[Rfam]
RNA sequence: AUGAUGGCAGCGGGAGAGAUUACUGAUGGACAGGUAACGCCGAAGGAGUAAGCCUUUCAGGUGAAUCUCUCAGGCAAAAGGACCUUUGUCGGACG
Number, nucleotide and partner (000 for none) at each position: 001a000002u000003g000004a000005u000006g090007g089008c088009a087010g086011c000012g084013g083014g000015a000016g000017a000018g000019a000020u037021u036022a035023c034024u000025g000026a000027u000028g000029g000030a000031c000032a000033g000034g023035u022036a021037a020038c000039g075040c074041c073042g071043a070044a000045g000046g069047a068048g067049u000050a000051a000052g062053c061054c000055u000056u000057u000058c000059a000060g000061g053062u052063g000064a000065a000066u000067c048068u047069c046070u043071c042072a000073g041074g040075c039076a000077a000078a000079a000080g000081g000082a000083c013084c012085u000086u010087u009088g008089u007090c006091g000092g000093a000094c000095g000